[Rfam]
RNA sequence: AUUGAAUCAUUAUUUAUUGAAUGUAUAUGUUUGGGAAUAUGGCCCAAUCGUUUCUACCAGGUAACCGUAAAUUGCCGGACUACAUGAAUGAGGAUAGAAUAA
Numbered sequence: 001a002u003u004g005a006a007u008c009a010u011u012a013u014u015u016a017u018u019g020a021a022u023g024u025a026u027a028u029g030u031u032u033g034g035g036a037a038u039a040u041g042g043c044c045c046a047a048u049c050g051u052u053u054c055u056a057c058c059a060g061g062u063a064a065c066c067g068u069a070a071a072u073u074g075c076c077g078g079a080c081u082a083c084a085u086g087a088a089u090g091a092g093g094a095u096a097g098a099a100u101a102a
Stems, first nucleotide, its partner, number of pairs: 018088001021085005029049001031047005058078001060076005
A member of the RNA family "Purine riboswitch aptamer" from Lederbergia galactosidilytica, 102 nucleotides long. The base pairs follow the family's consensus structure, which is taken from published work. Taxonomically the source falls in Lederbergia (Bacteria, Bacillota, Caryophanales, Bacillaceae). From the family's description: Riboswitches are metabolite binding domains within certain messenger RNAs that serve as precision sensors for their corresponding targets.